[Rfam]
RNA sequence: CCGGCAGAGGAUAACCCUAGAGACUUUCCGCAGACUGCCGCCGGCUUACACAUCCGUGACGGGAACGAGAGGUUUGUGCCGUCAUGCGGCUGGGAAGCAGCGAAAGCGCCGAAGAAGCAAACAAGGGAACGCAUCAUUCCUGAGUGGAAACUGACAGGCAAAAGGAAGGUUAUCCGACGGAGCUCUGGAGAGAGCGGCAGAAUCAGCAGAAGGAAAAGGAUUUGUGCCGCCGCCUACGUGGCUAUAACCAACUGGUAAAAGGACAGAGAG
Numbered sequence: 001c002c003g004g005c006a007g008a009g010g011a012u013a014a015c016c017c018u019a020g021a022g023a024c025u026u027u028c029c030g031c032a033g034a035c036u037g038c039c040g041c042c043g044g045c046u047u048a049c050a051c052a053u054c055c056g057u058g059a060c061g062g063g064a065a066c067g068a069g070a071g072g073u074u075u076g077u078g079c080c081g082u083c084a085u086g087c088g089g090c091u092g093g094g095a096a097g098c099a100g101c102g103a104a105a106g107c108g109c110c111g112a113a114g115a116a117g118c119a120a121a122c123a124a125g126g127g128a129a130c131g132c133a134u135c136a137u138u139c140c141u142g143a144g145u146g147g148a149a150a151c152u153g154a155c156a157g158g159c160a161a162a163a164g165g166a167a168g169g170u171u172a173u174c175c176g177a178c179g180g181a182g183c184u185c186u187g188g189a190g191a192g193a194g195c196g197g198c199a200g201a202a203u204c205a206g207c208a209g210a211a212g213g214a215a216a217a218g219g220a221u222u223u224g225u226g227c228c229g230c231c232g233c234c235u236a237c238g239u240g241g242c243u244a245u246a247a248c249c250a251a252c253u254g255g256u257a258a259a260a261g262g263a264c265a266g267a268g269a270g
Stems, first nucleotide, its partner, number of pairs: 001180003010174007022107001024106004108159003114155001116152002121145002125141005183268005192231001194230006232256003238252001240249002
RNA: glycine-GGAnGA riboswitch aptamer
Organism: Lachnoclostridium sp. An131